Record summary:
Rfam assigns this 156-nucleotide RNA sequence from Phytomonospora endophytica to the family "c-di-AMP riboswitch aptamer (ydaO/yuaA leader)". The source organism's lineage runs through Bacteria, Bacillati, Actinomycetes, Micromonosporales and Phytomonospora. Pairs were carried over by alignment from the consensus structure.
[Rfam]
RNA sequence: GGAGCGACACCGCCGAAUCACCGACGCUCACGCGUCCCCACGUGAACCGGGGAACCACGCCAUCGGGGCGAAUCCUGCACCACAACGCAGGUAGGGCGAUGCUUCUUCCCGCCCGAGCCCGUCAGCUAACCCGGUAGGCGGUCCGAGGAAGAAGGA
Numbered sequence: 001g002g003a004g005c006g007a008c009a010c011c012g013c014c015g016a017a018u019c020a021c022c023g024a025c026g027c028u029c030a031c032g033c034g035u036c037c038c039c040a041c042g043u044g045a046a047c048c049g050g051g052g053a054a055c056c057a058c059g060c061c062a063u064c065g066g067g068g069c070g071a072a073u074c075c076u077g078c079a080c081c082a083c084a085a086c087g088c089a090g091g092u093a094g095g096g097c098g099a100u101g102c103u104u105c106u107u108c109c110c111g112c113c114c115g116a117g118c119c120c121g122u123c124a125g126c127u128a129a130c131c132c133g134g135u136a137g138g139c140g141g142u143c144c145g146a147g148g149a150a151g152a153a154g155g156a
Base pairs, nucleotide, nucleotide: 011140012139013138014137018045019044020043046135047134048133049132050131051130056065066120067119068118074091075090076089077088094114095113096112097111